[Rfam]
Plant signal recognition particle RNA: a 309-nucleotide RNA sequence from Corymbia citriodora. Rfam 15.1 lists 4,988 matches to the family in 266 species. The match comes from Rfam's covariance-model search (239 bits). Rfam classes the family as a non-coding RNA gene.
RNA sequence: GUCGUGCUCAGUAACGAGGGCUUGUGACCCGAGUGGGGGCAUUAAUGUGGUGGAACAUGGGUUCAAAUCCUUUGGGCGCCGGGUCUGGUGUGGCAAUUAUCUGGCUUGCCCAUUCCAAGCCGAGAGUUGGUCCAUGCGGUUUGGGCGAAGGCCCGGGCCACAUGGAUCCUAGAGUGGAGAGGCCCGCGUCAGGCUGGUUUCAUAGAGCAGCGAAAACUUCCCGCUCUCGGCAGUGGGAGGAUAACGGGCUGGUGUCACCUAGGUCCACCAUGGUCCAACGGGCCGAGUCCCAAUUGAACCACCACUUUU
Numbered sequence: 001g002u003c004g005u006g007c008u009c010a011g012u013a014a015c016g017a018g019g020g021c022u023u024g025u026g027a028c029c030c031g032a033g034u035g036g037g038g039g040c041a042u043u044a045a046u047g048u049g050g051u052g053g054a055a056c057a058u059g060g061g062u063u064c065a066a067a068u069c070c071u072u073u074g075g076g077c078g079c080c081g082g083g084u085c086u087g088g089u090g091u092g093g094c095a096a097u098u099a100u101c102u103g104g105c106u107u108g109c110c111c112a113u114u115c116c117a118a119g120c121c122g123a124g125a126g127u128u129g130g131u132c133c134a135u136g137c138g139g140u141u142u143g144g145g146c147g148a149a150g151g152c153c154c155g156g157g158c159c160a161c162a163u164g165g166a167u168c169c170u171a172g173a174g175u176g177g178a179g180a181g182g183c184c185c186g187c188g189u190c191a192g193g194c195u196g197g198u199u200u201c202a203u204a205g206a207g208c209a210g211c212g213a214a215a216a217c218u219u220c221c222c223g224c225u226c227u228c229g230g231c232a233g234u235g236g237g238a239g240g241a242u243a244a245c246g247g248g249c250u251g252g253u254g255u256c257a258c259c260u261a262g263g264u265c266c267a268c269c270a271u272g273g274u275c276c277a278a279c280g281g282g283c284c285g286a287g288u289c290c291c292a293a294u295u296g297a298a299c300c301a302c303c304a305c306u307u308u309u
Base pairs, nucleotide, nucleotide: 001040002039003038004023006021007020008019009018028037029036030035044308045307047305048304049303050302051301052300053299056296057295058292059291060290061288062287063286064285068282069281070280072278073277074276075275077272081266082265083264084263085262086261087260088259090258091257092256093255096253101252102251103250104249105248106247107246108245110240111239113238114237115236116235117234119231120230121229122228123227124226125225126224127223129168130167131166132165133164134163135162136161138159139158140157141156142155143154144153145152146151169174176221177220178219179218187212188211189210194205195204196203